Small nucleolar RNA SNORA25: a 127-nucleotide sequence from Pipistrellus kuhlii.
ACA25 is a member of the H/ACA class of snoRNA that guide the sites of modification of uridines to pseudouridines.
The source organism's lineage runs through Eukaryota, Eumetazoa, Dipnotetrapodomorpha, Amniota and Pipistrellus.
The base pairs follow the family's consensus structure, which was predicted with RNAfold.
Rfam classes the family as an H/ACA-box small nucleolar RNA.
Rfam 15.1 lists 1,129 matches to the family in 449 species.
[Rfam]
RNA sequence: AGGUAAUUUCAGAGAAAGCUUGUGGAACCAAAACCAGGAGCUCUUAACACUGUGACCAAAGAUUGAAGUUCUCCAUAUGUUGUAACUGUCACUCAAUAAUGCUGUAUUUUCCUGAGGAGAUAAAAUA
Dot-bracket structure: .(((.((......((.(((((.(((........)).)))))).))......)).)))............(((((..(.(.....((.(.((.(....).))).)).....).)..))))).......
Numbered sequence: 001a002g003g004u005a006a007u008u009u010c011a012g013a014g015a016a017a018g019c020u021u022g023u024g025g026a027a028c029c030a031a032a033a034c035c036a037g038g039a040g041c042u043c044u045u046a047a048c049a050c051u052g053u054g055a056c057c058a059a060a061g062a063u064u065g066a067a068g069u070u071c072u073c074c075a076u077a078u079g080u081u082g083u084a085a086c087u088g089u090c091a092c093u094c095a096a097u098a099a100u101g102c103u104g105u106a107u108u109u110u111c112c113u114g115a116g117g118a119g120a121u122a123a124a125a126u127a
Stems, first nucleotide, its partner, number of pairs: 002057003006053002014045002017042005023037001024035002070120005077113001079111001085105002088102001090101002093098001